[Rfam]
RNA sequence: CCCAGCAAUGAAUUGCUGGGCUGUUGUCGGUCGUCCCGCUGGGACG
Numbered sequence: 001c002c003c004a005g006c007a008a009u010g011a012a013u014u015g016c017u018g019g020g021c022u023g024u025u026g027u028c029g030g031u032c033g034u035c036c037c038g039c040u041g042g043g044a045c046g
Base pairs, nucleotide, nucleotide: 001020002019003018004017005016006015007014008013033045034044035043036042037041
RNA: Acido-Lenti-1 RNA